Rfam assigns this 90-nucleotide RNA from Amphiprion ocellaris to the family "mir-7 microRNA precursor family". The family's consensus secondary structure was predicted with PFOLD. Rfam's curators write: This family represents the microRNA (miRNA) precursor mir-7. Gene Ontology terms of the family: RISC complex and miRNA-mediated post-transcriptional gene silencing.
[Rfam]
RNA sequence: AGUGUGACACCACGUGGAAGACUAGUGAUUUUGUUGUUGUAAAUUCACGUUUUUGACAACAAGUCACAGUCUACCUCAUUGUUUCACACC
Numbered sequence: 001a002g003u004g005u006g007a008c009a010c011c012a013c014g015u016g017g018a019a020g021a022c023u024a025g026u027g028a029u030u031u032u033g034u035u036g037u038u039g040u041a042a043a044u045u046c047a048c049g050u051u052u053u054u055g056a057c058a059a060c061a062a063g064u065c066a067c068a069g070u071c072u073a074c075c076u077c078a079u080u081g082u083u084u085c086a087c088a089c090c
Stems, first nucleotide, its partner, number of pairs: 002089006010081001012079001014077001016075002019072005025067007033060006